A member of the RNA family "Gammaprotebacteria rimP leader" from Ferrimonas sediminicola, 180 nucleotides long. The family's RNA type in Rfam is cis-regulatory leader. A reference for the family is Naville and Gautheret (2010), "Premature terminator analysis sheds light on a hidden world of bacterial transcriptional attenuation", Genome Biol. The family's consensus secondary structure is taken from published work. It scores 58 bits against the family's covariance model. The source organism's lineage runs through Bacteria, Pseudomonadati, Pseudomonadota, Alteromonadales and Ferrimonas.

[Rfam]
RNA sequence: GACCAGGUCAUCCUAAACAGGGUACAGCGCACUUUAAGCCCCGUUUUGCUCGGGGCUUUUUGUUAUCUGAACCACGGUGACGGUGGCGAUAGCGCAAUCACAUGGGGCUGUAUUUUCAGGCCAUCUGAUUGUGUUUAUCGUAAUUGUCAUUUUGAUAACAGGGCUUUAAGCCCUUUUUUC
Numbered sequence: 001g002a003c004c005a006g007g008u009c010a011u012c013c014u015a016a017a018c019a020g021g022g023u024a025c026a027g028c029g030c031a032c033u034u035u036a037a038g039c040c041c042c043g044u045u046u047u048g049c050u051c052g053g054g055g056c057u058u059u060u061u062g063u064u065a066u067c068u069g070a071a072c073c074a075c076g077g078u079g080a081c082g083g084u085g086g087c088g089a090u091a092g093c094g095c096a097a098u099c100a101c102a103u104g105g106g107g108c109u110g111u112a113u114u115u116u117c118a119g120g121c122c123a124u125c126u127g128a129u130u131g132u133g134u135u136u137a138u139c140g141u142a143a144u145u146g147u148c149a150u151u152u153u154g155a156u157a158a159c160a161g162g163g164c165u166u167u168a169a170g171c172c173c174u175u176u177u178u179u180c
Base pairs, nucleotide, nucleotide: 036058037057038056039055040054041053042052043051161173162172163171164170